[Rfam]
RNA: Small nucleolar RNA SNORD14
RNA sequence: AACUGAUGAUGAUAAUCUUUAAGGCUUGUUUCUCAGAGACAUUCGCAGUGGCCGACUAAAACUUUCGCCUUUCGCCGGGCUUGAGAGUUUGUGAUGCUCCAUUCCUUCCUUGGAUGUCUGAAGUU
Number, nucleotide and partner (000 for none) at each position: 001a125002a124003c123004u122005g000006a000007u000008g000009a000010u000011g000012a000013u000014a000015a000016u000017c000018u000019u000020u000021a000022a000023g000024g000025c000026u000027u000028g000029u000030u000031u000032c000033u000034c000035a000036g000037a000038g000039a000040c000041a000042u000043u000044c000045g000046c000047a000048g000049u000050g000051g000052c000053c000054g000055a000056c000057u000058a000059a000060a000061a088062c087063u086064u085065u084066c083067g000068c000069c000070u000071u000072u000073c000074g000075c000076c000077g000078g000079g000080c000081u000082u000083g066084a065085g064086a063087g062088u061089u000090u000091g000092u000093g000094a000095u000096g000097c000098u000099c000100c000101a000102u000103u000104c000105c000106u000107u000108c000109c000110u000111u000112g000113g000114a000115u000116g000117u000118c000119u000120g000121a000122a004123g003124u002125u001